[Rfam]
RNA sequence: CCGGGAACGGCGCGACCGCAAAUCUGACUCGCCCAUCUGGGCUUGGGAUUGCGGGAGUGC
Numbered sequence: 001c002c003g004g005g006a007a008c009g010g011c012g013c014g015a016c017c018g019c020a021a022a023u024c025u026g027a028c029u030c031g032c033c034c035a036u037c038u039g040g041g042c043u044u045g046g047g048a049u050u051g052c053g054g055g056a057g058u059g060c
Base pairs, nucleotide, nucleotide: 010060011059012058013057016054017053018052019051020050021049024047025046031042032041033040034039
The family of this 60-nucleotide RNA is "S15-Halobacteria ribosomal protein leader". Clan: Ribosomal Protein S15 Leader clan. It is annotated as a cis-regulatory leader. A reference for the family is Eckert and Weinberg (2020), "Discovery of 20 novel ribosomal leader candidates in bacteria and archaea", BMC Microbiol.